[Rfam]
This 91-nucleotide RNA sequence from Nicotiana tabacum belongs to the Rfam family "MIR6152 microRNA precursor family". Lineage of the source: Eukaryota > Streptophyta > Embryophyta > Mesangiospermae > Nicotiana. The family has 2 seed sequences and 5,807 matches in Rfam 15.1.
RNA sequence: UGGGCAGAUUAUUGUAUUCGACUGUAUUCACGGCGUGAAAUAAGGGAUUACACUGUUUUAAAUGGAAAGUGAACCAAUUAAAUAGACUCCU
Number, nucleotide and partner (000 for none) at each position: 001u000002g090003g089004g088005c000006a000007g000008a000009u085010u084011a083012u000013u000014g000015u000016a000017u081018u080019c000020g079021a078022c000023u076024g075025u000026a000027u073028u072029c071030a070031c069032g000033g000034c064035g063036u062037g059038a058039a057040a056041u055042a054043a000044g000045g000046g000047a000048u000049u000050a000051c000052a000053c000054u042055g041056u040057u039058u038059u037060a000061a000062a036063u035064g034065g000066a000067a000068a000069g031070u030071g029072a028073a027074c000075c024076a023077a000078u021079u020080a018081a017082a000083u011084a010085g009086a000087c000088u004089c003090c002091u000

Pairs were carried over by alignment from the consensus structure, which was predicted with RNAalifold. A search with the family's covariance model found it, with a score of 74 bits.